Shown here is a 597-nucleotide part of an RNA from Psalteriomonas marylandensis, a member of the family "Eukaryotic small subunit ribosomal RNA". Clan: SSU clan. The organism belongs to Psalteriomonas, within Eukaryota. A reference for the family is Cannone et al. (2002), "The comparative RNA web (CRW) site: an online database of comparative sequence and structure information for ribosomal, intron, and other RNAs", BMC Bioinformatics.
RNA sequence: UUAAAACGCUCGUAGUCAAUUCAAGGGAGUAAGUUCUAAAGUCAAUUAGGUUUAUCUAGACCAAAAACUAUUUUAAUAGUUCAAGGUUUAGUCCUUUCAGGAGUCGUUAUUGAUAGUAACUUUAAUUUUAGCAUUAUCUUUUUUAAACCUUUUUAUUUAACCAAAAUAAUUAGGCUUUAUUAGAGUACAUAUGCGGCUUUAGUCUUAAAUCCCGACCAAACAAUCCUGUGACUAAAUUAACGCGAUUAAAGCAGGAUUUGUUAAUGACAGAUUCUUUGAAUCUGUUAUUUUGUGAUGUAACAUACAUCAGCAUAGCAUCUAUUUUCAAGAUAGUUUUCUAUUUUGAAUAGAUAAUAGGACCAGAUUCAAGUUCUCAGUACUUGCUAAUCAGGGGUGAAAUCCGUAUAGUUAGCAAAGACUACCAAAGGCGAAAGCAGAGAACCAGAACUGGUCUAUUGAUCAGGAGCUAGAGUUAAGGGAACAAAGAUGAUUAGAUACCGUCGUAGUCUUAACUAUAAACUAUACUAAUUAGAGCUUGUACAAAGCCGUGUUAUUAGAUUUAUACAUGAACCCCGAGAAAUCUCAAAUUUUUGAGUU
Numbered sequence: 001u002u003a004a005a006a007c008g009c010u011c012g013u014a015g016u017c018a019a020u021u022c023a024a025g026g027g028a029g030u031a032a033g034u035u036c037u038a039a040a041g042u043c044a045a046u047u048a049g050g051u052u053u054a055u056c057u058a059g060a061c062c063a064a065a066a067a068c069u070a071u072u073u074u075a076a077u078a079g080u081u082c083a084a085g086g087u088u089u090a091g092u093c094c095u096u097u098c099a100g101g102a103g104u105c106g107u108u109a110u111u112g113a114u115a116g117u118a119a120c121u122u123u124a125a126u127u128u129u130a131g132c133a134u135u136a137u138c139u140u141u142u143u144u145a146a147a148c149c150u151u152u153u154u155a156u157u158u159a160a161c162c163a164a165a166a167u168a169a170u171u172a173g174g175c176u177u178u179a180u181u182a183g184a185g186u187a188c189a190u191a192u193g194c195g196g197c198u199u200u201a202g203u204c205u206u207a208a209a210u211c212c213c214g215a216c217c218a219a220a221c222a223a224u225c226c227u228g229u230g231a232c233u234a235a236a237u238u239a240a241c242g243c244g245a246u247u248a249a250a251g252c253a254g255g256a257u258u259u260g261u262u263a264a265u266g267a268c269a270g271a272u273u274c275u276u277u278g279a280a281u282c283u284g285u286u287a288u289u290u291u292g293u294g295a296u297g298u299a300a301c302a303u304a305c306a307u308c309a310g311c312a313u314a315g316c317a318u319c320u321a322u323u324u325u326c327a328a329g330a331u332a333g334u335u336u337u338c339u340a341u342u343u344u345g346a347a348u349a350g351a352u353a354a355u356a357g358g359a360c361c362a363g364a365u366u367c368a369a370g371u372u373c374u375c376a377g378u379a380c381u382u383g384c385u386a387a388u389c390a391g392g393g394g395u396g397a398a399a400u401c402c403g404u405a406u407a408g409u410u411a412g413c414a415a416a417g418a419c420u421a422c423c424a425a426a427g428g429c430g431a432a433a434g435c436a437g438a439g440a441a442c443c444a445g446a447a448c449u450g451g452u453c454u455a456u457u458g459a460u461c462a463g464g465a466g467c468u469a470g471a472g473u474u475a476a477g478g479g480a481a482c483a484a485a486g487a488u489g490a491u492u493a494g495a496u497a498c499c500g501u502c503g504u505a506g507u508c509u510u511a512a513c514u515a516u517a518a519a520c521u522a523u524a525c526u527a528a529u530u531a532g533a534g535c536u537u538g539u540a541c542a543a544a545g546c547c548g549u550g551u552u553a554u555u556a557g558a559u560u561u562a563u564a565c566a567u568g569a570a571c572c573c574c575g576a577g578a579a580a581u582c583u584c585a586a587a588u589u590u591u592u593g594a595g596u597u
Stems, first nucleotide, its partner, number of pairs: 006597001008467004015460003357454004362449002365446002370442006376420002381415007391402003428435002472513006481507002486502004524596003527589003532571001537566004542561002545559001547557001575582002